RNA sequence: CAUAUUCGCCGAAGCCAACUCCUCCUCCCAUGGCUUCGACGGAACGCGAGAGCCGGUCAUCCUCCUCCCAGACCGGUUCGAACGCAAAAGACGCUCGUCGGAUCCUCCUCCCCCGACGAGCGUUUUGC
Numbered sequence: 001c002a003u004a005u006u007c008g009c010c011g012a013a014g015c016c017a018a019c020u021c022c023u024c025c026u027c028c029c030a031u032g033g034c035u036u037c038g039a040c041g042g043a044a045c046g047c048g049a050g051a052g053c054c055g056g057u058c059a060u061c062c063u064c065c066u067c068c069c070a071g072a073c074c075g076g077u078u079c080g081a082a083c084g085c086a087a088a089a090g091a092c093g094c095u096c097g098u099c100g101g102a103u104c105c106u107c108c109u110c111c112c113c114c115g116a117c118g119a120g121c122g123u124u125u126u127g128c
Stems, first nucleotide, its partner, number of pairs: 007041002011037007050079009091123011
Dot-bracket structure: ......((..(((((((.............)))))))..))........(((((((((............)))))))))...........(((((((((((...........))))))))))).....
This 128-nucleotide sequence from Notoacmeibacter marinus belongs to the Rfam family "Alphaproteobacterial ar14". The family's RNA type in Rfam is small RNA. NCBI's taxonomy places the organism under Bacteria, Pseudomonadati, Alphaproteobacteria, Hyphomicrobiales, Notoacmeibacter. The pairing is the family consensus, mapped onto this sequence. About the family: Smr14C2 was renamed NfeR1 (Nodule Formation Efficiency RNA) highly expressed in salt stress and during the symbiotic interaction on legume roots.